[Rfam]
A member of the RNA family "Small nucleolar RNA SNORA42/SNORA80 family" from Molossus molossus, 134 nucleotides long. A search with the family's covariance model found it, with a score of 119 bits. Its family is annotated with nucleolus and RNA processing in the Gene Ontology. About the family: The members of this family belong to the H/ACA class of snoRNAs that guide the sites of modification of uridines to pseudouridines. Human ACA42 (SNORA42) was cloned from HeLa cells by immunoprecipitation with anti-GAR1 antibody. Its is predicted to guide the pseudouridylation of residues U109 and U572 of 18S rRNA. ACA42 shares the same host gene with ACA26, ACA46, ACA50. This family also includes mammalian snoRNA ACA67 (SNORA80) which was identified by computational screening and its expression in mouse experimentally verified by Northern blot and primer extension analysis. ACA67 is proposed to guide the pseudouridylation of the same 18S rRNA residues as ACA42. On this family, see Schattner et al., RNA 2006: "A computational screen for mammalian pseudouridylation guide H/ACA RNAs".

RNA sequence: GCAUGGGUUUGGAUUCAUGGCAGGCCCAUCCCCUGGGGUUUCUCAUAGUGCCUCAUGCCAGAGCAAACUGUGGCCUUGAACCUUUGCCUGGCCUCUGCCCAUAGGCUGCAGGCACUCAAGUUGGUUGCACAGUG
Dot-bracket structure: ((((((((......(.((((.(((((.........)).))).)))).).)))).))))............(((((...........((((((((........))))))..))..........))))).......